[Rfam]
RNA sequence: AAAGUCCACUGGGGGUGCCGUAACGGCUGAGAUAAGGCGCAGUAGCCUUGAUCCCUUCGAACCUGAUCUGGAUUAUACCAGCGUAGGGAAGUGGCAUGACGACUGG
Numbered sequence: 001a002a003a004g005u006c007c008a009c010u011g012g013g014g015g016u017g018c019c020g021u022a023a024c025g026g027c028u029g030a031g032a033u034a035a036g037g038c039g040c041a042g043u044a045g046c047c048u049u050g051a052u053c054c055c056u057u058c059g060a061a062c063c064u065g066a067u068c069u070g071g072a073u074u075a076u077a078c079c080a081g082c083g084u085a086g087g088g089a090a091g092u093g094g095c096a097u098g099a100c101g102a103c104u105g106g
Stems, first nucleotide, its partner, number of pairs: 006094005011056004016050001017027004034049005062087004068081004
Rfam assigns this 106-nucleotide RNA from Aneurinibacillus danicus to the family "TPP riboswitch aptamer (THI element)". A search with the family's covariance model found it, with a score of 84 bits. About the family: Vitamin B(1) in its active form thiamin pyrophosphate (TPP) is an essential coenzyme that is synthesised by coupling of pyrimidine and thiazole moieties in bacteria. The previously detected thiamin-regulatory element, thi box was extended, resulting in a new, highly conserved RNA secondary structure, the THI element, which is widely distributed in eubacteria and also occurs in some archaea.